[Rfam]
The family of this 38-nucleotide sequence from Peptoclostridium litorale is "Selenocysteine insertion sequence 4".

RNA sequence: GGCACUUGUACACGUUGCGGUGCAACUAUGGUAAAAGA
Numbered sequence: 001g002g003c004a005c006u007u008g009u010a011c012a013c014g015u016u017g018c019g020g021u022g023c024a025a026c027u028a029u030g031g032u033a034a035a036a037g038a
Base pairs, nucleotide, nucleotide: 005031006030014026015025016024017023018022

The family's RNA type in Rfam is cis-regulatory element. For this family Rfam cites "Molecular analysis of the grd operon coding for genes of the glycine reductase and of the thioredoxin system from Clostridium sticklandii" (Graentzdoerffer et al., Arch Microbiol, 2001). The base pairs follow the family's consensus structure, which was predicted with PFOLD. Gene Ontology term of the family: selenocysteine incorporation.